[Rfam]
RNA sequence: UUCCAUCGCUAAGUCAAGGCUCCUUUCUGCAUUUUGCAAAUUUCUCCAUGAAAGACGCCUGUUACAGCUUUGGUAUAUCAAGCCGCACCCGCCAACUCCUGUACUUGUAUGGAAGAUGGUUCUCGAAAUCGCUUUCGUCUUGGAAGCUUUAUCACCAGAGUGCAUGGCGUGCUUCGUUUGAGUUGAGGUCUGCUUUUCUGUUUAUAGCAUUUCUCUUAGUAAUGUCUCACACAUGC
Numbered sequence: 001u002u003c004c005a006u007c008g009c010u011a012a013g014u015c016a017a018g019g020c021u022c023c024u025u026u027c028u029g030c031a032u033u034u035u036g037c038a039a040a041u042u043u044c045u046c047c048a049u050g051a052a053a054g055a056c057g058c059c060u061g062u063u064a065c066a067g068c069u070u071u072g073g074u075a076u077a078u079c080a081a082g083c084c085g086c087a088c089c090c091g092c093c094a095a096c097u098c099c100u101g102u103a104c105u106u107g108u109a110u111g112g113a114a115g116a117u118g119g120u121u122c123u124c125g126a127a128a129u130c131g132c133u134u135u136c137g138u139c140u141u142g143g144a145a146g147c148u149u150u151a152u153c154a155c156c157a158g159a160g161u162g163c164a165u166g167g168c169g170u171g172c173u174u175c176g177u178u179u180g181a182g183u184u185g186a187g188g189u190c191u192g193c194u195u196u197u198c199u200g201u202u203u204a205u206a207g208c209a210u211u212u213c214u215c216u217u218a219g220u221a222a223u224g225u226c227u228c229a230c231a232c233a234u235g236c
Stems, first nucleotide, its partner, number of pairs: 003073003017060004023054004028038004083167002085163004091120004096115002099112005125153002131147007169230003175224003185215004191209004
A member of the RNA family "Small nucleolar RNA snR191" from Exophiala xenobiotica, 236 nucleotides long. A search with the family's covariance model found it, with a score of 53 bits. The literature on the family includes a 2003 paper in RNA by Badis et al., "A snoRNA that guides the two most conserved pseudouridine modifications within rRNA confers a growth advantage in yeast".